Overview: A member of the RNA family "freshwater-2 RNA", 89 nucleotides long.

RNA sequence: CUUUAGCUCUGCUAAAGACUUAUGCGGUAACAUCCUCCGCGUAGUGGCUAGAACCACGUUAGACAGAAACAAAAGGAGAAAACAAAAUG
Numbered sequence: 001c002u003u004u005a006g007c008u009c010u011g012c013u014a015a016a017g018a019c020u021u022a023u024g025c026g027g028u029a030a031c032a033u034c035c036u037c038c039g040c041g042u043a044g045u046g047g048c049u050a051g052a053a054c055c056a057c058g059u060u061a062g063a064c065a066g067a068a069a070c071a072a073a074a075g076g077a078g079a080a081a082a083c084a085a086a087a088u089g
Base pairs, nucleotide, nucleotide: 001017002016003015004014005013006012021043022042023041024040025039026038027037044057045056046055047054